[Rfam]
RNA sequence: GCGUUCCUUCGAGCUACACCGCGGAGCCACAAACGGAGUUCUUAGUAACUUUCAUGCUCUGAGGAAAGUCCCUGGACCGUGGGCAGAAAGUGCCGUAGCGCUAUCUGCUGCUAGCCUCCUGUCGUCUUUCUCGUCUUAGGGAUAGGAAGCUUCGGCAGAUCCUUUCGAGUUAGGGCGGGAGUGUAUUGGUCAAAUAAAAGUAAUGUGUUAGAGACGAAAAUUCUAUAAUUCUAGAAUUAUAGAAUCCGUGUCAAACUAAACAGGGCUCAUAACGAAGGAAAG
Numbered sequence: 001g002c003g004u005u006c007c008u009u010c011g012a013g014c015u016a017c018a019c020c021g022c023g024g025a026g027c028c029a030c031a032a033a034c035g036g037a038g039u040u041c042u043u044a045g046u047a048a049c050u051u052u053c054a055u056g057c058u059c060u061g062a063g064g065a066a067a068g069u070c071c072c073u074g075g076a077c078c079g080u081g082g083g084c085a086g087a088a089a090g091u092g093c094c095g096u097a098g099c100g101c102u103a104u105c106u107g108c109u110g111c112u113a114g115c116c117u118c119c120u121g122u123c124g125u126c127u128u129u130c131u132c133g134u135c136u137u138a139g140g141g142a143u144a145g146g147a148a149g150c151u152u153c154g155g156c157a158g159a160u161c162c163u164u165u166c167g168a169g170u171u172a173g174g175g176c177g178g179g180a181g182u183g184u185a186u187u188g189g190u191c192a193a194a195u196a197a198a199a200g201u202a203a204u205g206u207g208u209u210a211g212a213g214a215c216g217a218a219a220a221u222u223c224u225a226u227a228a229u230u231c232u233a234g235a236a237u238u239a240u241a242g243a244a245u246c247c248g249u250g251u252c253a254a255a256c257u258a259a260a261c262a263g264g265g266c267u268c269a270u271a272a273c274g275a276a277g278g279a280a281a282g
Base pairs, nucleotide, nucleotide: 002282004280005279006278007277008276009275010274011273014211015210016208017207018206019205022061023060024059025058026057027056036051037050038049039048040047067267068266070265071264072263073262082094083093084092085091095111096110097109098108099107116179120177121176122175123174125172130169131168132167139163140162141161142160149156150155213252214251215250216249
About this RNA
This 282-nucleotide RNA from Bombus vosnesenskii belongs to the Rfam family "RNase MRP". For this family Rfam cites "Secondary structure of RNase MRP RNA as predicted by phylogenetic comparison" (Schmitt et al., FASEB J, 1993).